[Rfam]
RNA sequence: UUAAGACUUGCAGUGAUGUUUAACUCCUCUCCACGUGAACAUCACAGCAAGUCUGUGC
Numbered sequence: 001u002u003a004a005g006a007c008u009u010g011c012a013g014u015g016a017u018g019u020u021u022a023a024c025u026c027c028u029c030u031c032c033a034c035g036u037g038a039a040c041a042u043c044a045c046a047g048c049a050a051g052u053c054u055g056u057g058c
Stems, first nucleotide, its partner, number of pairs: 004054007013045010